[Rfam]
RNA: Bacterial RNase P class B
RNA sequence: ACAUUCGGGUAAUCGCUGCCGCAUCAUGCGGUAGAGGAAAGUCCAUGCUCGCACAGUGCUGUGAUGCCUGUAGUGUUCAUGCCUGACGAAACAAUAAGUCAGGGCAGCUCGGUAUAAACGGGGCUGACGGCAGGGAAAACACCUACGUCUUCUUGAUAUGGUGUGACUACCUUGAAAGUGCCACAGUGACGGAGCUUUGUUGGAAACAGCAAAGGUGGAACGAGGUAAACCCCAUGAGCGAGCAACUCAAAAUUUGGUAGAGGCACUCUUUCUGAGGAAACGAACGAGGAAAGAGGCAAGAUAUGAUGAUCUUGCAGAUAGAUGAUUACCGCCGGAGUACGAGGUCCACCUUUGACCGCUUGCAGUACAAAGGUACAGAACAUGGCUUACAUGA
Numbered sequence: 001a002c003a004u005u006c007g008g009g010u011a012a013u014c015g016c017u018g019c020c021g022c023a024u025c026a027u028g029c030g031g032u033a034g035a036g037g038a039a040a041g042u043c044c045a046u047g048c049u050c051g052c053a054c055a056g057u058g059c060u061g062u063g064a065u066g067c068c069u070g071u072a073g074u075g076u077u078c079a080u081g082c083c084u085g086a087c088g089a090a091a092c093a094a095u096a097a098g099u100c101a102g103g104g105c106a107g108c109u110c111g112g113u114a115u116a117a118a119c120g121g122g123g124c125u126g127a128c129g130g131c132a133g134g135g136a137a138a139a140c141a142c143c144u145a146c147g148u149c150u151u152c153u154u155g156a157u158a159u160g161g162u163g164u165g166a167c168u169a170c171c172u173u174g175a176a177a178g179u180g181c182c183a184c185a186g187u188g189a190c191g192g193a194g195c196u197u198u199g200u201u202g203g204a205a206a207c208a209g210c211a212a213a214g215g216u217g218g219a220a221c222g223a224g225g226u227a228a229a230c231c232c233c234a235u236g237a238g239c240g241a242g243c244a245a246c247u248c249a250a251a252a253u254u255u256g257g258u259a260g261a262g263g264c265a266c267u268c269u270u271u272c273u274g275a276g277g278a279a280a281c282g283a284a285c286g287a288g289g290a291a292a293g294a295g296g297c298a299a300g301a302u303a304u305g306a307u308g309a310u311c312u313u314g315c316a317g318a319u320a321g322a323u324g325a326u327u328a329c330c331g332c333c334g335g336a337g338u339a340c341g342a343g344g345u346c347c348a349c350c351u352u353u354g355a356c357c358g359c360u361u362g363c364a365g366u367a368c369a370a371a372g373g374u375a376c377a378g379a380a381c382a383u384g385g386c387u388u389a390c391a392u393g394a
Base pairs, nucleotide, nucleotide: 004394005393007390008330009329010328011327012326013325014324016034017033018032019031020030021029039388040387041386043385044384045383046382047381048242049241050240051239052238053071054070055069056068058067059066077237078236079235080234081233082103083102084101085100086099087098104128105126106125107124108123109122110121129232130231132172133171134170140163141162142161143160147157148156149155178230179229180226181225182224195214196213197212198211199210200209201208202207246262247261248260266295267294268293269292270291271290272289296315297314298313299312300311301310332373333372337368338367339366340365